A member of the RNA family "Streptomyces sRNA 4677" from Streptomyces olivoverticillatus, 221 nucleotides long.

Nucleotides: 221
Stems, first nucleotide, its partner, number of pairs: 007200004022078003092128004156192005162186002166180004203219005
Number, partner (000 for none) and nucleotide at each position: 001000g002000a003000u004000u005000c006000g007200g008199g009198u010197g011000u012000c013000g014000a015000g016000c017000c018000c019000c020000g021000a022078g023077c024076g025000c026000c027000c028000u029000u030000u031000c032000u033000g034000a035000g036000g037000a038000a039000c040000g041000g042000g043000a044000g045000g046000u047000g048000g049000a050000g051000a052000u053000a054000a055000c056000c057000c058000a059000c060000c061000c062000a063000c064000c065000c066000u067000c068000c069000c070000a071000a072000g073000u074000c075000c076024c077023g078022c079000g080000c081000c082000u083000a084000c085000a086000c087000g088000u089000g090000c091000g092128g093127a094126u095125g096000a097000c098000u099000u100000u101000c102000c103000g104000c105000a106000a107000c108000c109000g110000a111000g112000u113000c114000g115000c116000c117000a118000c119000a120000c121000c122000c123000c124000g125095c126094a127093u128092c129000c130000a131000g132000c133000c134000u135000g136000u137000a138000g139000c140000g141000u142000g143000c144000g145000c146000a147000g148000c149000a150000a151000c152000a153000a154000g155000c156192g157191a158190c159189c160188c161000c162186c163185g164000c165000c166180g167179g168178u169177g170000c171000u172000a173000c174000c175000a176000a177169c178168a179167c180166c181000g182000a183000a184000a185163c186162g187000g188160g189159g190158g191157u192156c193000u194000g195000a196000c197010c198009a199008c200007c201000a202000a203219g204218a205217u206216c207215g208000g209000a210000a211000g212000a213000a214000g215207c216206g217205a218204u219203c220000c221000c
Lineage of the source: Bacteria > Actinomycetota > Actinomycetes > Streptomycetaceae > Streptomyces. From the family's description: Located in the intergenic region between anti-sigma factor SCO4677 gene and a putative regulatory protein gene SCO4676. scr4677 expression requires the SCO4677 activity and scr4677 sRNA itself seem to affect the levels of the SCO4676-associated transcripts. Pairs were carried over by alignment from the consensus structure. For this family Rfam cites "Complex intra-operonic dynamics mediated by a small RNA in Streptomyces coelicolor" (Hindra et al., PLoS One, 2014). By type it is a small RNA.